[Rfam]
RNA sequence: AAGAAGUGUGACAUGCCCGUUUGGAAUUUAGUCUGAUGUAUUUUUAAAUAUUAUUUAAUUGCUUUUGGGUAACGGGGUGUUACACCAGU
Numbered sequence: 001a002a003g004a005a006g007u008g009u010g011a012c013a014u015g016c017c018c019g020u021u022u023g024g025a026a027u028u029u030a031g032u033c034u035g036a037u038g039u040a041u042u043u044u045u046a047a048a049u050a051u052u053a054u055u056u057a058a059u060u061g062c063u064u065u066u067g068g069g070u071a072a073c074g075g076g077g078u079g080u081u082a083c084a085c086c087a088g089u
Stems, first nucleotide, its partner, number of pairs: 002089001006085009016076006
This 89-nucleotide RNA from Medicago truncatula belongs to the Rfam family "MIR2617 microRNA precursor family". Taxonomically the source falls in Medicago (Eukaryota, Tracheophyta, Euphyllophyta, Magnoliopsida). The family has 3 seed sequences and 1,174 matches in Rfam 15.1. Pairs were carried over by alignment from the consensus structure, which was predicted with RNAalifold. Its family is annotated with RISC complex and miRNA-mediated post-transcriptional gene silencing in the Gene Ontology.